[Rfam]
RNA sequence: CAACGUUAAGGGCAAACCCGUUAAAAGACGGGGUCGCAAAGCCAUGGGCCUAAGGCUUGUAUAAGCUAUGGUUGCCAGGUUGCCGGU
Number, nucleotide and partner (000 for none) at each position: 001c000002a000003a000004c000005g000006u000007u000008a000009a000010g000011g000012g037013c036014a000015a000016a000017c032018c031019c030020g029021u028022u027023a000024a000025a000026a000027g022028a021029c020030g019031g018032g017033g000034u000035c000036g013037c012038a000039a000040a081041g080042c079043c078044a000045u077046g076047g075048g072049c071050c070051u000052a000053a000054g000055g066056c065057u064058u063059g000060u000061a000062u000063a058064a057065g056066c055067u000068a000069u000070g050071g049072u048073u000074g000075c047076c046077a045078g043079g042080u041081u040082g000083c000084c000085g000086g000087u000
The family of this 87-nucleotide RNA from Neomoorella humiferrea is "c-di-GMP-I riboswitch aptamer". Its family is annotated with cyclic-di-GMP binding in the Gene Ontology. From the family's description: GEMM was predicted in a large-scale screen for bacterial structured RNA regulatory elements.